[Rfam]
RNA: Pistol ribozyme
RNA sequence: AGUGGUCACAGCCACUAUAAACAGGGCUUUAAGCUGUGAGCGUUGACCGUCACAACGGCGGUCAGGUAGUC
Dot-bracket structure: [[[[.((((((.]]]]........[[[[....[)))))).].((((((((.......))))))))..]]]]